Background
The family of this 133-nucleotide RNA from Vicugna pacos is "U11 spliceosomal RNA".
Nucleotides: 133
Stems, first nucleotide, its partner, number of pairs: 008083001010080002012025001014023003026054004031049005037043001055078001057076005101131004106127005112122003
Number, partner (000 for none) and nucleotide at each position: 001000u002000a003000a004000a005000g006000g007000u008083g009000g010080u011079u012025a013000a014023u015022c016021a017000u018000g019000a020000g021016u022015g023014g024000c025012u026054c027053a028052u029051g030000g031049a032048g033047g034046g035045c036000a037043g038000c039000u040000u041000g042000a043037u044000g045035g046034c047033u048032c049031u050000a051029c052028a053027u054026g055078c056000a057076g058075a059074a060073u061072c062000c063000a064000c065000a066000u067000c068000g069000a070000g071000a072061g073060a074059u075058u076057u077000c078055g079011g080010a081000a082000g083008c084000g085000u086000a087000a088000u089000u090000u091000u092000u093000u094000g095000g096000u097000a098000u099000u100000u101131g102130g103129g104128c105000a106127g107126c108125u109124g110123g111000u112122g113121a114120u115000g116000g117000u118000c119000a120114g121113u122112c123110c124109u125108g126107g127106u128104g129103c130102c131101c132000c133000u